A member of the RNA family "Bacterial large subunit ribosomal RNA" from Sebaldella termitidis, 381 nucleotides of a longer RNA.

RNA sequence: GAGAAAGAGGGUGAGAAUCCCUCUGGCCGGAAGUCCAAGGUUUCCAAAGGAAGGUUUGUCCGCUUUGGGGGAGUCGGGACCUAAGUUGAGGCUGAAAAGCGUAGGCGAAUGGAAAAUAGGUUAAUAUUCCUAUACCACUGUUAUUUGUUUGAGAGAUGGAGUGACGCAGAAAGGUAUGUAAGCAUACUGACGGAAUAGUAUGUCGAAGAGAGUAGCAUGAUUAGGUAGGUAAAUCCGCCUGAUUAAAUGUGAGACUUGAUAGGGAGCUUCUAAGGAAGCGAAGUUACAAAUCCUAUGCUGCCGAGAAAAACUUCUAUUUAGAAUAAUAGUGCCCGUACUGUAAACCGACACAGGUGGACUGUGUGAGAAACAUAAGGCCGA
Numbered sequence: 001g002a003g004a005a006a007g008a009g010g011g012u013g014a015g016a017a018u019c020c021c022u023c024u025g026g027c028c029g030g031a032a033g034u035c036c037a038a039g040g041u042u043u044c045c046a047a048a049g050g051a052a053g054g055u056u057u058g059u060c061c062g063c064u065u066u067g068g069g070g071g072a073g074u075c076g077g078g079a080c081c082u083a084a085g086u087u088g089a090g091g092c093u094g095a096a097a098a099g100c101g102u103a104g105g106c107g108a109a110u111g112g113a114a115a116a117u118a119g120g121u122u123a124a125u126a127u128u129c130c131u132a133u134a135c136c137a138c139u140g141u142u143a144u145u146u147g148u149u150u151g152a153g154a155g156a157u158g159g160a161g162u163g164a165c166g167c168a169g170a171a172a173g174g175u176a177u178g179u180a181a182g183c184a185u186a187c188u189g190a191c192g193g194a195a196u197a198g199u200a201u202g203u204c205g206a207a208g209a210g211a212g213u214a215g216c217a218u219g220a221u222u223a224g225g226u227a228g229g230u231a232a233a234u235c236c237g238c239c240u241g242a243u244u245a246a247a248u249g250u251g252a253g254a255c256u257u258g259a260u261a262g263g264g265a266g267c268u269u270c271u272a273a274g275g276a277a278g279c280g281a282a283g284u285u286a287c288a289a290a291u292c293c294u295a296u297g298c299u300g301c302c303g304a305g306a307a308a309a310a311c312u313u314c315u316a317u318u319u320a321g322a323a324u325a326a327u328a329g330u331g332c333c334c335g336u337a338c339u340g341u342a343a344a345c346c347g348a349c350a351c352a353g354g355u356g357g358a359c360u361g362u363g364u365g366a367g368a369a370a371c372a373u374a375a376g377g378c379c380g381a
Base pairs, nucleotide, nucleotide: 006024007023008022009021010020011019025379026378027377028376033359034358035357036356039339040338044068045067046066047065048064049063053061054060075335076334077333078332080112081111085106086105087104089102091100092099093098116133117132118131119130120129136331137330138329139328140327141326142325143324144323145322146321153319154318158314159313160312161311162310166301167300168299169298172294173293174292177288178287179286180285181284182203183202184201185200186199187198204262208257209256210255215250216249217248220243221242222241223240224239225238226237228236229235266279267278268277269276270275345354346353361373362372363371364370